Overview: mir-788 microRNA precursor family: a 79-nucleotide RNA from Caenorhabditis remanei. The sequence is in the family's curated seed alignment. Taxonomically the source falls in Caenorhabditis (Eukaryota, Bilateria, Chromadorea, Rhabditomorpha).
RNA sequence: ACUUACGUCUCCGCUUCUAACUUCCAUUUGCAGAGUUCAUCAAUUCUCUGGAAAUGGAUUAGAACCGUGAAAUGUUAGU
Numbered sequence: 001a002c003u004u005a006c007g008u009c010u011c012c013g014c015u016u017c018u019a020a021c022u023u024c025c026a027u028u029u030g031c032a033g034a035g036u037u038c039a040u041c042a043a044u045u046c047u048c049u050g051g052a053a054a055u056g057g058a059u060u061a062g063a064a065c066c067g068u069g070a071a072a073u074g075u076u077a078g079u
Stems, first nucleotide, its partner, number of pairs: 001079003005075004012069003015064006023058007031050005